The family of this 406-nucleotide RNA sequence from Streptomyces lonarensis is "Bacterial RNase P class A". Pairs were carried over by alignment from the consensus structure, which is taken from published work.
RNA sequence: CGAGUCGUGCGGACGGUCGCGUCGGGGCAUGCCCCCGCCGAGGAACGUCCGGGCUCCACAGGGCAAGGUGGUGGCUAACGGCCACCCGGGGCGACCCGCGAGACAGUGCCACAGAAAACAGACCGCCGGGGCCGAGAGGCACCCGGUAAGGGUGAAACGGUGGUGUAAGAGACCACCAGCGCCCAGGGUGACCUGGGCGGCUCGGUAAACCUCACCUGGAGCAAGGUCAAGAGGGGACGCGUUCCGUACGGGACGCGUCCCUGCGCGGAUGUUCGAGGGCUGCUCGCCCGAGUCCGCGGGUAGACCGCUGGAGGCUGUCGGCAACGGCAGUCCUAGAUGGAUGACCGUCACCCCGCCGGCCGCGAGGCCCCGGGGUACAGAACCCGGCGUACAGCCGACUCGUCUG
Numbered sequence: 001c002g003a004g005u006c007g008u009g010c011g012g013a014c015g016g017u018c019g020c021g022u023c024g025g026g027g028c029a030u031g032c033c034c035c036c037g038c039c040g041a042g043g044a045a046c047g048u049c050c051g052g053g054c055u056c057c058a059c060a061g062g063g064c065a066a067g068g069u070g071g072u073g074g075c076u077a078a079c080g081g082c083c084a085c086c087c088g089g090g091g092c093g094a095c096c097c098g099c100g101a102g103a104c105a106g107u108g109c110c111a112c113a114g115a116a117a118a119c120a121g122a123c124c125g126c127c128g129g130g131g132c133c134g135a136g137a138g139g140c141a142c143c144c145g146g147u148a149a150g151g152g153u154g155a156a157a158c159g160g161u162g163g164u165g166u167a168a169g170a171g172a173c174c175a176c177c178a179g180c181g182c183c184c185a186g187g188g189u190g191a192c193c194u195g196g197g198c199g200g201c202u203c204g205g206u207a208a209a210c211c212u213c214a215c216c217u218g219g220a221g222c223a224a225g226g227u228c229a230a231g232a233g234g235g236g237a238c239g240c241g242u243u244c245c246g247u248a249c250g251g252g253a254c255g256c257g258u259c260c261c262u263g264c265g266c267g268g269a270u271g272u273u274c275g276a277g278g279g280c281u282g283c284u285c286g287c288c289c290g291a292g293u294c295c296g297c298g299g300g301u302a303g304a305c306c307g308c309u310g311g312a313g314g315c316u317g318u319c320g321g322c323a324a325c326g327g328c329a330g331u332c333c334u335a336g337a338u339g340g341a342u343g344a345c346c347g348u349c350a351c352c353c354c355g356c357c358g359g360c361c362g363c364g365a366g367g368c369c370c371c372g373g374g375g376u377a378c379a380g381a382a383c384c385c386g387g388c389g390u391a392c393a394g395c396c397g398a399c400u401c402g403u404c405u406g
Stems, first nucleotide, its partner, number of pairs: 001402007009395002011392001012349007020040002023037005045390003049387005054221004061285004066217005071085005086100001087098004101212002106210002108206003123151002125147006131140003159177006179201001180199008225306004235295004277289004313332008